[Rfam]
RNA sequence: CAGCGGAGUAGAAGCGUUCAGCGGCACGCCGCCCGGAAAUUGCUCCCGAU
Numbered sequence: 001c002a003g004c005g006g007a008g009u010a011g012a013a014g015c016g017u018u019c020a021g022c023g024g025c026a027c028g029c030c031g032c033c034c035g036g037a038a039a040u041u042g043c044u045c046c047c048g049a050u
Base pairs, nucleotide, nucleotide: 005046006045007044008043009042010041015035018037019036021032022031023030024029
Rfam assigns this 50-nucleotide sequence from Cupriavidus necator to the family "Xanthine riboswitch aptamer (NMT1 RNA)". On this family, see Yu and Breaker, RNA 2020: "A bacterial riboswitch class senses xanthine and uric acid to regulate genes associated with purine oxidation". Lineage of the source: Bacteria > Pseudomonadati > Pseudomonadota > Burkholderiaceae > Cupriavidus necator. Gene Ontology term of the family: purine nucleobase binding.